[Rfam]
RNA: glmS glucosamine-6-phosphate activated ribozyme aptamer
RNA sequence: UAUUUAUUUAAAGCGCAAGGGGUUAAAUUUUUGUAUGAUAUUUAACCUGACGAGGAUGAGGAGUAUCGAUUAAUCAGCGGGUGCCUCACGGUAUGAUACUACCGUUAAAGUCUGGCAAAACUAAAAAGUGAUUUUUAGAACAAAUCCAGACGGGUAUCAAGA
Numbered sequence: 001u002a003u004u005u006a007u008u009u010a011a012a013g014c015g016c017a018a019g020g021g022g023u024u025a026a027a028u029u030u031u032u033g034u035a036u037g038a039u040a041u042u043u044a045a046c047c048u049g050a051c052g053a054g055g056a057u058g059a060g061g062a063g064u065a066u067c068g069a070u071u072a073a074u075c076a077g078c079g080g081g082u083g084c085c086u087c088a089c090g091g092u093a094u095g096a097u098a099c100u101a102c103c104g105u106u107a108a109a110g111u112c113u114g115g116c117a118a119a120a121c122u123a124a125a126a127a128g129u130g131a132u133u134u135u136u137a138g139a140a141c142a143a144a145u146c147c148a149g150a151c152g153g154g155u156a157u158c159a160a161g162a
Stems, first nucleotide, its partner, number of pairs: 020048008057088005066077001068075002089104005110151005121138007